[Rfam]
RNA sequence: GCUGGGCUUAAACCACGCGCGUAGUGGAGUGGGCCUGUAGUCCCAGCUACUCAGGAGGCUGAGCCCGUUGGAUCGCUUGAGCCCAGGAGUUCUGGGCAGCAGUGCGCUAUGCUGAGCAGGCAUCCGUGCUAAAGCCGGCAUAUAUAUGGUGAGCCCCAGGGAGCCGGGGCACACCAGGUUGACUAAGGAGGGGUGAACCGGCCCAGGUCAGAGAAGAAGCAGGACAGAGCUCCCGGGCUGGUCAGUGAGGGGAUCGCACCUGUGAAUAGCCACUGCAGCAUAGCCUGGUCAACACUGAGAGACAUGGGUUCCU
Numbered sequence: 001g002c003u004g005g006g007c008u009u010a011a012a013c014c015a016c017g018c019g020c021g022u023a024g025u026g027g028a029g030u031g032g033g034c035c036u037g038u039a040g041u042c043c044c045a046g047c048u049a050c051u052c053a054g055g056a057g058g059c060u061g062a063g064c065c066c067g068u069u070g071g072a073u074c075g076c077u078u079g080a081g082c083c084c085a086g087g088a089g090u091u092c093u094g095g096g097c098a099g100c101a102g103u104g105c106g107c108u109a110u111g112c113u114g115a116g117c118a119g120g121c122a123u124c125c126g127u128g129c130u131a132a133a134g135c136c137g138g139c140a141u142a143u144a145u146a147u148g149g150u151g152a153g154c155c156c157c158a159g160g161g162a163g164c165c166g167g168g169g170c171a172c173a174c175c176a177g178g179u180u181g182a183c184u185a186a187g188g189a190g191g192g193g194u195g196a197a198c199c200g201g202c203c204c205a206g207g208u209c210a211g212a213g214a215a216g217a218a219g220c221a222g223g224a225c226a227g228a229g230c231u232c233c234c235g236g237g238c239u240g241g242u243c244a245g246u247g248a249g250g251g252g253a254u255c256g257c258a259c260c261u262g263u264g265a266a267u268a269g270c271c272a273c274u275g276c277a278g279c280a281u282a283g284c285c286u287g288g289u290c291a292a293c294a295c296u297g298a299g300a301g302a303c304a305u306g307g308g309u310u311c312c313u
Stems, first nucleotide, its partner, number of pairs: 001059003004036007041056003061311008073300002076297001081290001083288005092283003096279002099276006106270005112264001116263005123256001124252002127250001130247002134242006141235001144179002147176005153170005159164001183187001190233005200225001202223002208217002
This 313-nucleotide RNA from Eolophus roseicapilla belongs to the Rfam family "Metazoan signal recognition particle RNA". From the family's description: The signal recognition particle (SRP) is a universally conserved ribonucleoprotein. It is involved in the co-translational targeting of proteins to membranes. The eukaryotic SRP consists of a 300-nucleotide 7S RNA and six proteins: SRPs 72, 68, 54, 19, 14, and 9. The base pairs follow the family's consensus structure, which is taken from published work. For this family Rfam cites "SRPDB: Signal Recognition Particle Database" (Rosenblad et al., Nucleic Acids Res, 2003). A search with the family's covariance model found it, with a score of 180 bits. Lineage of the source: Eukaryota > Sauria > Dinosauria > Aves > Eolophus.